[Rfam]
RNA sequence: CUCUUAUUAAGAGCGGCGGAGGGACUGGCCCAAUGAAGCCCGGCAACCUUUCAAUUUUUUGUGAAAAGGUGCUAAUUCCAGCAAGAUUUCAGUUUACGAAAUCUUGAAAGAUAAGAG
Numbered sequence: 001c002u003c004u005u006a007u008u009a010a011g012a013g014c015g016g017c018g019g020a021g022g023g024a025c026u027g028g029c030c031c032a033a034u035g036a037a038g039c040c041c042g043g044c045a046a047c048c049u050u051u052c053a054a055u056u057u058u059u060u061g062u063g064a065a066a067a068g069g070u071g072c073u074a075a076u077u078c079c080a081g082c083a084a085g086a087u088u089u090c091a092g093u094u095u096a097c098g099a100a101a102u103c104u105u106g107a108a109a110g111a112u113a114a115g116a117g
Stems, first nucleotide, its partner, number of pairs: 001117008013041001015040003021031003025081004042073004047069002050065004077109001082106009
The family of this 117-nucleotide sequence from Sporolactobacillus laevolacticus is "SAM riboswitch aptamer (S box leader)". The organism belongs to Sporolactobacillus laevolacticus, within Bacteria. The literature on the family includes a 2006 paper in Nature by Montange and Batey, "Structure of the S-adenosylmethionine riboswitch regulatory mRNA element".